[Rfam]
Fluoride riboswitch aptamer (crcB RNA motif): a 77-nucleotide sequence from Gordonibacter pamelaeae. The family's consensus secondary structure is taken from published work.
RNA sequence: AAUGCCUGCGGGAAUGAGGUUCUCCCUAAGCCGUUUCAAGGCUUGAACCGCGUAAAGCUGAUGACUUCUGCAAACGG
Numbered sequence: 001a002a003u004g005c006c007u008g009c010g011g012g013a014a015u016g017a018g019g020u021u022c023u024c025c026c027u028a029a030g031c032c033g034u035u036u037c038a039a040g041g042c043u044u045g046a047a048c049c050g051c052g053u054a055a056a057g058c059u060g061a062u063g064a065c066u067u068c069u070g071c072a073a074a075c076g077g
Base pairs, nucleotide, nucleotide: 010026011025012024013023016068017067018066019065020064021063050058051057
The source organism's lineage runs through Bacteria, Actinomycetota, Eggerthellales, Gordonibacter and Gordonibacter pamelaeae.